The record is a 33-nucleotide RNA sequence, which matches "DUF805b RNA" in Rfam. The sequence is in the family's curated seed alignment. It is annotated as a cis-regulatory element.
RNA sequence: AAUGAGGUUGCCGAAAAUCAUUAAGAGUAGGCA
Numbered sequence: 001a002a003u004g005a006g007g008u009u010g011c012c013g014a015a016a017a018u019c020a021u022u023a024a025g026a027g028u029a030g031g032c033a
Stems, first nucleotide, its partner, number of pairs: 002021004010032003